[Rfam]
RNA: U2 spliceosomal RNA
Organism: Erpetoichthys calabaricus
RNA sequence: CUUACUUUUAAUGAGAUAUGAAAUAAAAUUGAUUUAGGACAAAAAAAAAAAAAUAAAAAUCUGUUCUUAUCAGUUUAAUAUCUGAUACGUCCCCUAUCUGGGGACCAUAUAUUAAAUUGAUUUUUGGAACAGGGAGAUGGAAUAGGGGCUUGCUCCGUCCACUCCACGCAUCGACCUGGUAUUGCAGUACUUCCAGGAGCGGUGCACUUUCU
Numbered sequence: 001c002u003u004a005c006u007u008u009u010a011a012u013g014a015g016a017u018a019u020g021a022a023a024u025a026a027a028a029u030u031g032a033u034u035u036a037g038g039a040c041a042a043a044a045a046a047a048a049a050a051a052a053a054u055a056a057a058a059a060u061c062u063g064u065u066c067u068u069a070u071c072a073g074u075u076u077a078a079u080a081u082c083u084g085a086u087a088c089g090u091c092c093c094c095u096a097u098c099u100g101g102g103g104a105c106c107a108u109a110u111a112u113u114a115a116a117u118u119g120a121u122u123u124u125u126g127g128a129a130c131a132g133g134g135a136g137a138u139g140g141a142a143u144a145g146g147g148g149c150u151u152g153c154u155c156c157g158u159c160c161a162c163u164c165c166a167c168g169c170a171u172c173g174a175c176c177u178g179g180u181a182u183u184g185c186a187g188u189a190c191u192u193c194c195a196g197g198a199g200c201g202g203u204g205c206a207c208u209u210u211c212u
Base pairs, nucleotide, nucleotide: 007053008052009051068087069086070085071084072083073082089105090104091103092102093101094100133165134164135163136162139159140158145156146155147154148153168205169204170203171202172201173200175197176196177195178194179193